[Rfam]
RNA sequence: CACCUCUUUCGGGGCGGGGUGCGAUUCCCCACCGGCGGUAUUGAUGGAGAGAGGCUCCGUCUCAGCCCGCGAAGCCUGCCGACAACCAUAGGGGGCAGGCCCGACCCGGUGAAACUCCGGGGCCGACAGUGAAAGACGCAGAACAACACGGGAAUUCCGGCAGGAAAAGCGCAGGGCCACCCCUGAGCUUCAGGCCACCACAAACCGCGUGUGUUGUGUCGCCAAGUCUGGAUGGAAGAAAGGGG
Numbered sequence: 001c002a003c004c005u006c007u008u009u010c011g012g013g014g015c016g017g018g019g020u021g022c023g024a025u026u027c028c029c030c031a032c033c034g035g036c037g038g039u040a041u042u043g044a045u046g047g048a049g050a051g052a053g054g055c056u057c058c059g060u061c062u063c064a065g066c067c068c069g070c071g072a073a074g075c076c077u078g079c080c081g082a083c084a085a086c087c088a089u090a091g092g093g094g095g096c097a098g099g100c101c102c103g104a105c106c107c108g109g110u111g112a113a114a115c116u117c118c119g120g121g122g123c124c125g126a127c128a129g130u131g132a133a134a135g136a137c138g139c140a141g142a143a144c145a146a147c148a149c150g151g152g153a154a155u156u157c158c159g160g161c162a163g164g165a166a167a168a169g170c171g172c173a174g175g176g177c178c179a180c181c182c183c184u185g186a187g188c189u190u191c192a193g194g195c196c197a198c199c200a201c202a203a204a205c206c207g208c209g210u211g212u213g214u215u216g217u218g219u220c221g222c223c224a225a226g227u228c229u230g231g232a233u234g235g236a237a238g239a240a241a242g243g244g245g
Stems, first nucleotide, its partner, number of pairs: 003245008017029003033125002035070004065123002074100005105121005127230003
Rfam assigns this 245-nucleotide RNA from Deinococcus cavernae to the family "FMN riboswitch aptamer (RFN element)". Rfam describes the family as follows. The RFN element is a highly conserved domain that is found frequently in the 5'-untranslated regions of prokaryotic mRNAs that encode for flavin mononucleotide (FMN) biosynthesis and transport proteins.